[Rfam]
RNA: Purine riboswitch aptamer
Organism: Enterocloster bolteae
Nucleotides: 097
Stems, first nucleotide, its partner, number of pairs: 019082007030045005055073005
Number, partner (000 for none) and nucleotide at each position: 001000u002000u003000a004000a005000c006000a007000u008000u009000u010000c011000u012000u013000u014000u015000g016000c017000c018000a019082a020081u021080a022079u023078g024077u025076a026000u027000a028000u029000c030045c031044u032043g033042g034041g035000g036000a037000u038000u039000g040000g041034c042033c043032c044031a045030g046000a047000g048000u049000c050000u051000c052000u053000a054000c055073c056072a057071a058070c059069u060000a061000c062000c063000g064000c065000a066000a067000a068000g069059a070058g071057u072056u073055g074000g075000c076025u077024a078023c079022a080021u081020a082019u083000c084000u085000u086000a087000a088000u089000g090000u091000a092000g093000c094000c095000a096000g097000c